Shown here is a 143-nucleotide RNA from Enterobacter sp. 638, a member of the family "isrN Hfq binding RNA". The family's consensus secondary structure was predicted with WAR. On this family, see Padalon-Brauch et al., Nucleic Acids Res 2008: "Small RNAs encoded within genetic islands of Salmonella typhimurium show host-induced expression and role in virulence". It is one of the family's seed sequences. The source organism's lineage runs through Bacteria, Pseudomonadati, Gammaproteobacteria, Enterobacteriaceae and Enterobacter.
RNA sequence: GGAUCACCGGUUCAUCACGCCGGGUAUCAGGCUGAUAAAAAUAUACCGUCCUGCUCAGCGAUAACGUCCUGCAGGCCUGGCGUAAACUCAUGGCAAAAUGCGCCGUCAGAUAGCGGACGAGUUCACGCUUUAUCGCUGGUUUU
Numbered sequence: 001g002g003a004u005c006a007c008c009g010g011u012u013c014a015u016c017a018c019g020c021c022g023g024g025u026a027u028c029a030g031g032c033u034g035a036u037a038a039a040a041a042u043a044u045a046c047c048g049u050c051c052u053g054c055u056c057a058g059c060g061a062u063a064a065c066g067u068c069c070u071g072c073a074g075g076c077c078u079g080g081c082g083u084a085a086a087c088u089c090a091u092g093g094c095a096a097a098a099u100g101c102g103c104c105g106u107c108a109g110a111u112a113g114c115g116g117a118c119g120a121g122u123u124c125a126c127g128c129u130u131u132a133u134c135g136c137u138g139g140u141u142u143u
Stems, first nucleotide, its partner, number of pairs: 025112004030107002048077001050075005058067003080103004116141003120137003
Dot-bracket structure: ........................((((.((................(.(((((...(((....)))...))))).)..((((................))))..)).))))...(((.(((............))).)))..